This 34-nucleotide RNA from Salinimicrobium catena belongs to the Rfam family "S4-Flavobacteria ribosomal protein leader". It is annotated as a cis-regulatory leader. Taxonomically the source falls in Salinimicrobium (Bacteria, Pseudomonadati, Bacteroidota, Flavobacteriaceae). Pairs were carried over by alignment from the consensus structure, which is taken from published work. A reference for the family is Eckert and Weinberg (2020), "Discovery of 20 novel ribosomal leader candidates in bacteria and archaea", BMC Microbiol.
[Rfam]
RNA sequence: GAUCAGCGAAGGACAGUGACCUUAAUUCCUGAUC
Numbered sequence: 001g002a003u004c005a006g007c008g009a010a011g012g013a014c015a016g017u018g019a020c021c022u023u024a025a026u027u028c029c030u031g032a033u034c
Base pairs, nucleotide, nucleotide: 001034002033003032004031005030006029008028009023010022011021012020